[Rfam]
RNA: Molybdenum/Tungsten riboswitch aptamer (Moco RNA motif)
RNA sequence: UAAAUAUAGUUUCUCCGAGUUUGCAUUUCUAAAGCUUAAAUGCUAUGAGUGCAAACCGAUACGGUAGUUUUGGAAACGAAACUGCCCCCUAUUUGGAAAGGAGGAAAUUGUAUGAGGUU
Number, nucleotide and partner (000 for none) at each position: 001u000002a000003a113004a000005u000006a000007u000008a000009g000010u000011u105012u104013c103014u102015c101016c100017g000018a000019g056020u055021u054022u053023g052024c051025a050026u000027u049028u048029c047030u000031a000032a000033a044034g043035c042036u000037u000038a000039a000040a000041u000042g035043c034044u033045a000046u000047g029048a028049g027050u025051g024052c023053a022054a021055a020056c019057c000058g000059a000060u000061a000062c000063g000064g085065u084066a083067g082068u081069u080070u079071u078072g077073g000074a000075a000076a000077c072078g071079a070080a069081a068082c067083u066084g065085c064086c096087c095088c000089c000090u000091a000092u000093u000094u000095g087096g086097a000098a000099a000100g016101g015102a014103g013104g012105a011106a000107a000108u000109u000110g000111u000112a000113u003114g000115a000116g000117g000118u000119u000